Rfam assigns this 371-nucleotide part of an RNA from Endozoicomonas montiporae to the family "Bacterial large subunit ribosomal RNA". Rfam 15.1 lists 51,934 matches to the family in 10,816 species.
Nucleotides: 371
Base pairs, nucleotide, nucleotide: 001371002370003369004368009366010365011364012363013362014361015360016359018357019356020355035059036058037057038056039055044049060101061100062099063098064097065096066095067094068093069092070091071090102106114350115349116348117347118346119345120344121342122341125139126138127137142177143176144175145174146173147172148171149170150167154163155162156161180337181336182335183334185267186266187265190264191263192260193259194258195257196256199255200254201253210244211243212242213241214240217236218235268286269285270284271283272282273281287291297324307323308322309321310320311319312318
Number, partner (000 for none) and nucleotide at each position: 001371u002370g003369a004368g005000a006000g007000a008000a009366c010365u011364u012363g013362g014361g015360u016359g017000a018357a019356g020355g021000a022000a023000c024000u025000a026000g027000g028000c029000a030000a031000a032000a033000u034000g035059g036058c037057a038056c039055c040000g041000u042000a043000a044049c045000u046000u047000c048000g049044g050000g051000a052000g053000a054000a055039g056038g057037u058036g059035c060101g061100c062099c063098g064097g065096c066095u067094a068093g069092g070091g071090u072000g073000a074000a075000g076000g077000a078000c079000u080000u081000g082000c083000u084000c085000c086000g087000u088000a089000a090071g091070c092069u093068c094067u095066g096065g097064c098063u099062g100061g101060u102106c103000g104000a105000a106102g107000a108000u109000a110000c111000c112000a113000g114350g115349u116348g117347g118346c119345u120344g121342c122341g123000a124000c125139u126138g127137u128000u129000u130000a131000u132000u133000a134000a135000a136000a137127a138126c139125a140000c141000a142177g143176c144175a145174c146173u147172g148171u149170g150167c151000u152000a153000a154163c155162a156161c157000g158000u159000a160000a161156g162155u163154g164000g165000a166000c167150g168000u169000a170149u171148a172147c173146g174145g175144u176143g177142u178000g179000a180337c181336g182335c183334c184000u185267g186266c187265c188000c189000g190264g191263u192260g193259c194258c195257g196256g197000a198000a199255g200254g201253u202000u203000a204000a205000u206000u207000g208000a209000u210244g211243g212242g213241g214240u215000u216000a217236g218235a219000c220000u221000c222000u223000c224000u225000u226000u227000u228000a229000a230000g231000a232000g233000a234000a235218u236217c237000g238000a239000a240214g241213c242212u243211c244210u245000u246000g247000a248000u249000c250000g251000a252000a253201g254200c255199c256196c257195c258194g259193g260192u261000a262000a263191a264190c265187g266186g267185c268286g269285g270284c271283c272282g273281u274000a275000a276000c277000u278000a279000u280000a281273a282272c283271g284270g285269u286268c287291c288000u289000a290000a291287g292000g293000u294000a295000g296000c297324g298000a299000a300000a301000u302000u303000c304000c305000u306000u307323g308322u309321c310320g311319g312318g313000u314000a315000a316000g317000u318312u319311c320310c321309g322308a323307c324297c325000u326000g327000c328000a329000c330000g331000a332000a333000u334183g335182g336181c337180g338000u339000a340000a341122c342121g343000a344120u345119g346118g347117c348116c349115a350114c351000g352000c353000u354000g355020u356019c357018u358000c359016c360015a361014c362013c363012c364011a365010a366009g367000a368004c369003u370002c371001a